[Rfam]
This 61-nucleotide RNA from Nodularia spumigena belongs to the Rfam family "Nitrogen stress-induced RNA 1". The base pairs follow the family's consensus structure. Rfam classes the family as a small RNA. On this family, see Ionescu et al., J Mol Biol 2010: "Heterocyst-specific transcription of NsiR1, a non-coding RNA encoded in a tandem array of direct repeats in cyanobacteria". The source organism's lineage runs through Bacteria, Cyanophyceae, Nostocales, Nodulariaceae and Nodularia spumigena.
RNA sequence: UGGUAGAUACAGACUGAUAACUAACUCCCCUGGCUGGCUGCCACCACUAGGGGUUUUUUCU
Numbered sequence: 001u002g003g004u005a006g007a008u009a010c011a012g013a014c015u016g017a018u019a020a021c022u023a024a025c026u027c028c029c030c031u032g033g034c035u036g037g038c039u040g041c042c043a044c045c046a047c048u049a050g051g052g053g054u055u056u057u058u059u060c061u
Base pairs, nucleotide, nucleotide: 004011027053028052029051030050031049032048033047035046036045037044